This 76-nucleotide RNA from Stegodyphus mimosarum belongs to the Rfam family "mir-10 microRNA precursor family". For this family Rfam cites "An extensive class of small RNAs in Caenorhabditis elegans" (Lee and Ambros, Science, 2001). The family's consensus secondary structure was predicted with PFOLD. A search with the family's covariance model found it, with a score of 50 bits.

[Rfam]
Nucleotides: 076
Base pairs, nucleotide, nucleotide: 002074003073004072005071010066011065016061017060018059019058021056022055023054024053025052026051027050028049029048030047
Number, partner (000 for none) and nucleotide at each position: 001000c002074g003073u004072a005071a006000u007000c008000u009000a010066c011065c012000c013000u014000g015000u016061a017060g018059a019058u020000c021056c022055g023054g024053g025052c026051u027050u028049u029048u030047g031000u032000a033000g034000a035000u036000u037000g038000c039000a040000u041000a042000g043000c044000u045000u046000u047030c048029a049028g050027a051026a052025g053024c054023u055022c056021g057000u058019a059018u060017u061016u062000a063000c064000a065011g066010g067000u068000a069000c070000c071005u072004u073003g074002c075000g076000a